[Rfam]
Nucleotides: 091
Stems, first nucleotide, its partner, number of pairs: 001091009011026006028044005047064005068082004
Number, partner (000 for none) and nucleotide at each position: 001091g002090g003089a004088a005087g006086a007085u008084c009083a010000u011026c012025g013024u014023c015022c016021c017000c018000g019000g020000u021016g022015g023014g024013g025012c026011g027000g028044c029043u030042g031041g032040a033000c034000u035000u036000c037000a038000a039000a040032u041031c042030c043029a044028g045000a046000u047064g048063g049062g050061g051060c052000c053000g054000c055000c056000a057000g058000c059000g060051g061050u062049c063048u064047c065000u066000g067000g068082c069081a070080g071079g072000u073000u074000c075000g076000a077000c078000u079071c080070c081069u082068g083009u084008g085007a086006u087005c088004u089003u090002c091001c